RNA sequence: UUUCCCAGCUUUGUACCCAGGGUCUCUCUGCAGACAUUGCACCUGGAGCUGCUCCUACCCCAAAUAAAUCCCAA
Numbered sequence: 001u002u003u004c005c006c007a008g009c010u011u012u013g014u015a016c017c018c019a020g021g022g023u024c025u026c027u028c029u030g031c032a033g034a035c036a037u038u039g040c041a042c043c044u045g046g047a048g049c050u051g052c053u054c055c056u057a058c059c060c061c062a063a064a065u066a067a068a069u070c071c072c073a074a
Stems, first nucleotide, its partner, number of pairs: 006051004017046004022035004
Background
The record is a 74-nucleotide sequence from Tychaedon coryphoeus, which matches "U1A polyadenylation inhibition element (PIE)" in Rfam. Gene Ontology term of the family: regulation of mRNA polyadenylation. The family has 39 seed sequences and 510 matches in Rfam 15.1. On this family, see Varani et al., Nat Struct Biol 2000: "The NMR structure of the 38 kDa U1A protein - PIE RNA complex reveals the basis of cooperativity in regulation of polyadenylation by human U1A protein". NCBI's taxonomy places the organism under Eukaryota, Chordata, Archelosauria, Australaves, Tychaedon.